[Rfam]
RNA sequence: UGUUGGACGCAACAUGGGAGUGACUGAAUAAACUUACUGGCAACCGCUGGUUAAGGUGAUGAGUCAGAGGUGGUGCUCGCUGGCAGGAAUGUCAGAACUACUCAACCAAGUAGGACUCAGGCAAUAACGUAUUUACUUUCUGUAGUAAUGCCCGUUAUUUGUUGGUACACAGGAAUCCAACCUCCCUCUUA
Numbered sequence: 001u002g003u004u005g006g007a008c009g010c011a012a013c014a015u016g017g018g019a020g021u022g023a024c025u026g027a028a029u030a031a032a033c034u035u036a037c038u039g040g041c042a043a044c045c046g047c048u049g050g051u052u053a054a055g056g057u058g059a060u061g062a063g064u065c066a067g068a069g070g071u072g073g074u075g076c077u078c079g080c081u082g083g084c085a086g087g088a089a090u091g092u093c094a095g096a097a098c099u100a101c102u103c104a105a106c107c108a109a110g111u112a113g114g115a116c117u118c119a120g121g122c123a124a125u126a127a128c129g130u131a132u133u134u135a136c137u138u139u140c141u142g143u144a145g146u147a148a149u150g151c152c153c154g155u156u157a158u159u160u161g162u163u164g165g166u167a168c169a170c171a172g173g174a175a176u177c178c179a180a181c182c183u184c185c186c187u188c189u190u191a
Base pairs, nucleotide, nucleotide: 001014002013003012004011005010016186017185018184019183020182023057024056036051037050038049039048040047041046060119061118062117063116064115065114067078068077069076071108072107073106074105080095081094082093083092084091085090098113099112100111101110102109123159124158125157126156127155128154129153133148134147135146136145140172141171142170143169161181162180163179164178165177